Description: The family of this 59-nucleotide RNA sequence from Illicium oligandrum is "Plastid-psbA-4 3UTR RNA". On this family, see Richter et al., Plant Commun 2023: "Retrograde signaling in plants: A critical review focusing on the GUN pathway and beyond". It is annotated as a cis-regulatory element. The base pairs follow the family's consensus structure, which was predicted with LocARNA.
RNA sequence: AAUUUAAGGAACAAUACCCAACUUCUUGAUAAAACAAGAAAUGGGGUAUUGUUCCUUAA
Numbered sequence: 001a002a003u004u005u006a007a008g009g010a011a012c013a014a015u016a017c018c019c020a021a022c023u024u025c026u027u028g029a030u031a032a033a034a035c036a037a038g039a040a041a042u043g044g045g046g047u048a049u050u051g052u053u054c055c056u057u058a059a
Stems, first nucleotide, its partner, number of pairs: 005058012021042001023040006